[Rfam]
Rfam assigns this 72-nucleotide sequence from Neogobius melanostomus to the family "mir-460 microRNA precursor family". Rfam 15.1 lists 1,029 matches to the family in 498 species. On this family, see Xu et al., FEBS Lett 2006: "Identification of microRNAs from different tissues of chicken embryo and adult chicken".

RNA sequence: CGUUUGAGUCUCCUCAUUGUGCAUGCUGUGUGUGUGCUUGUCAGAAUCACACAGCGCCUGCAAUGUGGAGGC
Numbered sequence: 001c002g003u004u005u006g007a008g009u010c011u012c013c014u015c016a017u018u019g020u021g022c023a024u025g026c027u028g029u030g031u032g033u034g035u036g037c038u039u040g041u042c043a044g045a046a047u048c049a050c051a052c053a054g055c056g057c058c059u060g061c062a063a064u065g066u067g068g069a070g071g072c
Stems, first nucleotide, its partner, number of pairs: 012068002015065007024056001026054006